[Rfam]
RNA sequence: CCCGCAGCUAGACGGAAAGACCCCGUGAACCUUGACUGUAGGCAGGUAUUGGGCUGAGAUAGCUCUUGUGUAGGAUAGGUGGGAGGCUGUGAUCCAGGUACGCCAGUAUCUGGGGAGCCGUCGGUGAAAUACCACCCUGGAUCUGUUUUAGUUCUAACCCCAACUCCGUGAAACCGGAUGGGGAACAGUGCCUGUUGGGCAGUUUGACUGGGGCGGUCUCCUCCAAAAGAGUAACGGAGGAGCCCAAAGGUACCCUCAGCCUGGUCGGCAAUCAGGCAGCGAGCGUAAAGGUAGAAGGGUGCUUAACUGCGAGACUUAUCAGUCGAGCAGGUGCGAAAGCAGGGCUUAGUGAUCCGGCGGUGCUGGAUGGAAAGGCCGUCGCUCAACAGAUAAAAGGUACUCCGGGGAUAACAGGCUUAUCGCGUCCGAGCGUCCAUAGCGGCGACGCGGUUUGGCACCUCGAUGUCGGCUCAUCGCAUCCUGGGGGUGAAGAAGCUCCCAAGGGUUUGGCUGUUCGCCAAUGAAAGCGGUACGUGAGCUGGGUUCAGACCGUCGUGAGACAGGUCGGUCCCUAUCUGCUGUGGGCGUA
Numbered sequence: 001c002c003c004g005c006a007g008c009u010a011g012a013c014g015g016a017a018a019g020a021c022c023c024c025g026u027g028a029a030c031c032u033u034g035a036c037u038g039u040a041g042g043c044a045g046g047u048a049u050u051g052g053g054c055u056g057a058g059a060u061a062g063c064u065c066u067u068g069u070g071u072a073g074g075a076u077a078g079g080u081g082g083g084a085g086g087c088u089g090u091g092a093u094c095c096a097g098g099u100a101c102g103c104c105a106g107u108a109u110c111u112g113g114g115g116a117g118c119c120g121u122c123g124g125u126g127a128a129a130u131a132c133c134a135c136c137c138u139g140g141a142u143c144u145g146u147u148u149u150a151g152u153u154c155u156a157a158c159c160c161c162a163a164c165u166c167c168g169u170g171a172a173a174c175c176g177g178a179u180g181g182g183g184a185a186c187a188g189u190g191c192c193u194g195u196u197g198g199g200c201a202g203u204u205u206g207a208c209u210g211g212g213g214c215g216g217u218c219u220c221c222u223c224c225a226a227a228a229g230a231g232u233a234a235c236g237g238a239g240g241a242g243c244c245c246a247a248a249g250g251u252a253c254c255c256u257c258a259g260c261c262u263g264g265u266c267g268g269c270a271a272u273c274a275g276g277c278a279g280c281g282a283g284c285g286u287a288a289a290g291g292u293a294g295a296a297g298g299g300u301g302c303u304u305a306a307c308u309g310c311g312a313g314a315c316u317u318a319u320c321a322g323u324c325g326a327g328c329a330g331g332u333g334c335g336a337a338a339g340c341a342g343g344g345c346u347u348a349g350u351g352a353u354c355c356g357g358c359g360g361u362g363c364u365g366g367a368u369g370g371a372a373a374g375g376c377c378g379u380c381g382c383u384c385a386a387c388a389g390a391u392a393a394a395a396g397g398u399a400c401u402c403c404g405g406g407g408a409u410a411a412c413a414g415g416c417u418u419a420u421c422g423c424g425u426c427c428g429a430g431c432g433u434c435c436a437u438a439g440c441g442g443c444g445a446c447g448c449g450g451u452u453u454g455g456c457a458c459c460u461c462g463a464u465g466u467c468g469g470c471u472c473a474u475c476g477c478a479u480c481c482u483g484g485g486g487g488u489g490a491a492g493a494a495g496c497u498c499c500c501a502a503g504g505g506u507u508u509g510g511c512u513g514u515u516c517g518c519c520a521a522u523g524a525a526a527g528c529g530g531u532a533c534g535u536g537a538g539c540u541g542g543g544u545u546c547a548g549a550c551c552g553u554c555g556u557g558a559g560a561c562a563g564g565u566c567g568g569u570c571c572c573u574a575u576c577u578g579c580u581g582u583g584g585g586c587g588u589a
Stems, first nucleotide, its partner, number of pairs: 001585008010577003014572002022406004027402002029398005035203004042195007051154012064141003068137001078136005085119003094113008158183003165178004206218004219241006242387001244344002250302006256282002259277006283292002307330004313324003332341003355381007363374002415456003419453001420450007430440002467542001468540004472534001473531005480505002483500006507521005548566004552561003
Dot-bracket structure: ((((((((.(((.((......((((.(((((((.((((...(((((((..((((((((((((.(((.(.........(((((..(((......((((((((....))))))))...)))............)))))).))).))))))))))))...(((....((((......))))..))).....)))))))....))))..((((.....))))((((((...........))))))(.((....((((((((.((((((.......))))))...))((......))....))))))....((((..(((......)))..)))).(((....))).))..........(((((((.((........))))))))).....)......)))))..))))))........(((.((((((((...((.......))...)))))))..))))..........(((((((((((..((.((((((......))))))...)).(((((.....))))).....)))))..)..)))).).....(((((((....))).))))....))..)))))))))))....

About this RNA:
This 589-nucleotide part of an RNA from planctomycete str. 670 belongs to the Rfam family "Bacterial large subunit ribosomal RNA". Pairs were carried over by alignment from the consensus structure, which is taken from published work. Taxonomically the source falls in Planctomycetaceae (Bacteria, Pseudomonadati, Planctomycetota, Planctomycetales). The sequence is in the family's curated seed alignment.